[Rfam]
Shown here is a 105-nucleotide RNA sequence from Prunus avium, a member of the family "MIR6274 microRNA precursor family". It scores 84 bits against the family's covariance model. Pairs were carried over by alignment from the consensus structure, which was predicted with RNAalifold. Taxonomically the source falls in Prunus (Eukaryota, Streptophyta, Euphyllophyta, fabids).
RNA sequence: GGAUGGUACUUUUUGCUAUCCCCGGCCAAUAAUGUGAUGACACGUAGGAUGACUUUUCCACGUAUCAUUGUGUUAUUGGCCGGGGAUAGCAAAACAGUGUUAUCC
Numbered sequence: 001g002g003a004u005g006g007u008a009c010u011u012u013u014u015g016c017u018a019u020c021c022c023c024g025g026c027c028a029a030u031a032a033u034g035u036g037a038u039g040a041c042a043c044g045u046a047g048g049a050u051g052a053c054u055u056u057u058c059c060a061c062g063u064a065u066c067a068u069u070g071u072g073u074u075a076u077u078g079g080c081c082g083g084g085g086a087u088a089g090c091a092a093a094a095c096a097g098u099g100u101u102a103u104c105c
Stems, first nucleotide, its partner, number of pairs: 002104004011094009021084020042063004047058003